[Rfam]
RNA: mir-216 microRNA precursor family
RNA sequence: CGUUUCGUUAAUCUCAUUUGGUAACUGUGAGGUUUGUUUAUUCCUCAGACUACUGAAUGGGAUCGACAAAAUG
Numbered sequence: 001c002g003u004u005u006c007g008u009u010a011a012u013c014u015c016a017u018u019u020g021g022u023a024a025c026u027g028u029g030a031g032g033u034u035u036g037u038u039u040a041u042u043c044c045u046c047a048g049a050c051u052a053c054u055g056a057a058u059g060g061g062a063u064c065g066a067c068a069a070a071a072u073g
Base pairs, nucleotide, nucleotide: 003071004070005069007067009065011063012062013061014060015059016058017057021054023051026049028047029046030045031044